The family of this 54-nucleotide RNA sequence from Aquabacterium soli is "Xanthine riboswitch aptamer (NMT1 RNA)". A search with the family's covariance model found it, with a score of 52 bits.

RNA sequence: CUCAGGAGUAGAAGCGUUCAGCGGCCCGCAGGCCGCCCGGAAAUUGCUCCAUGC
Numbered sequence: 001c002u003c004a005g006g007a008g009u010a011g012a013a014g015c016g017u018u019c020a021g022c023g024g025c026c027c028g029c030a031g032g033c034c035g036c037c038c039g040g041a042a043a044u045u046g047c048u049c050c051a052u053g054c
Base pairs, nucleotide, nucleotide: 005050006049007048008047009046010045015039018041019040021036022035023034024033025032026031
Dot-bracket structure: ....((((((....[..((.((((((....))))))..]))...))))))....